RNA sequence: AGCUUUUCAAAUCCGUGCUGAGAUUUUGUCAGACAGCAACCCAUUAGAGCUGAUCAGUAUUCCGAGAUAAGUGAAGUU
Numbered sequence: 001a002g003c004u005u006u007u008c009a010a011a012u013c014c015g016u017g018c019u020g021a022g023a024u025u026u027u028g029u030c031a032g033a034c035a036g037c038a039a040c041c042c043a044u045u046a047g048a049g050c051u052g053a054u055c056a057g058u059a060u061u062c063c064g065a066g067a068u069a070a071g072u073g074a075a076g077u078u
Stems, first nucleotide, its partner, number of pairs: 002077005008071001011068003016064002020062003024059001025057002028054003

Background: This 78-nucleotide sequence from Schistosoma curassoni belongs to the Rfam family "mir-3492 microRNA precursor family". Pairs were carried over by alignment from the consensus structure, which was predicted with RNAalifold. Gene Ontology terms of the family: miRNA-mediated post-transcriptional gene silencing and RISC complex. The organism belongs to Schistosoma, within Eukaryota.